Notes: Shown here is a 110-nucleotide RNA from Mycobacterium fragae, a member of the family "SAM (S-adenosyl methionine) riboswitch aptamer". The source organism's lineage runs through Bacteria, Bacillati, Actinomycetota, Actinomycetes and Mycobacterium. On this family, see Weinberg et al., RNA 2008: "The aptamer core of SAM-IV riboswitches mimics the ligand-binding site of SAM-I riboswitches". About the family: SAM-IV is a mRNA element that regulates gene expression via direct sensing of S-adenosylmethionine (SAM or AdoMet).
[Rfam]
Nucleotides: 110
Base pairs, nucleotide, nucleotide: 001075002074003073004072009038011037013035014034015033016032021030022029039062040061041060044058045057046056048055049054078099079098081096082095083094084093085092086091
Number, partner (000 for none) and nucleotide at each position: 001075c002074u003073u004072c005000a006000c007000g008000a009038g010000a011037u012000a013035c014034g015033c016032c017000a018000c019000u020000a021030a022029g023000c024000c025000c026000c027000g028000g029022c030021u031000c032016g033015g034014c035013g036000c037011a038009c039062a040061c041060c042000a043000g044058c045057c046056c047000c048055a049054u050000g051000c052000u053000c054049a055048u056046g057045g058044g059000u060041g061040g062039u063000c064000c065000g066000g067000g068000u069000g070000a071000c072004g073003a074002a075001g076000c077000g078099g079098c080000g081096g082095a083094c084093a085092c086091c087000a088000a089000a090000c091086g092085g093084u094083g095082u096081c097000g098079g099078c100000a101000a102000g103000a104000g105000c106000g107000c108000c109000u110000c